[Rfam]
RNA: Small nucleolar RNA R12
Organism: Carnegiea gigantea
RNA sequence: AUAAAUGAUGAAACAGAUCAGACGGAUUCCCAAUGAUUUUUUCACGUUAUGUGAAAAAUGAUCUCACAACCAGCUACUUCUGAUUAU
Number, nucleotide and partner (000 for none) at each position: 001a087002u086003a085004a084005a000006u000007g000008a000009u000010g000011a000012a000013a000014c000015a000016g000017a000018u000019c000020a000021g000022a000023c000024g000025g000026a000027u000028u000029c000030c000031c000032a000033a000034u000035g000036a000037u000038u000039u000040u000041u000042u000043c000044a000045c000046g000047u000048u000049a000050u000051g000052u000053g000054a000055a000056a000057a000058a000059u000060g000061a000062u000063c000064u000065c000066a000067c000068a000069a000070c000071c000072a000073g000074c000075u000076a000077c000078u000079u000080c000081u000082g000083a000084u004085u003086a002087u001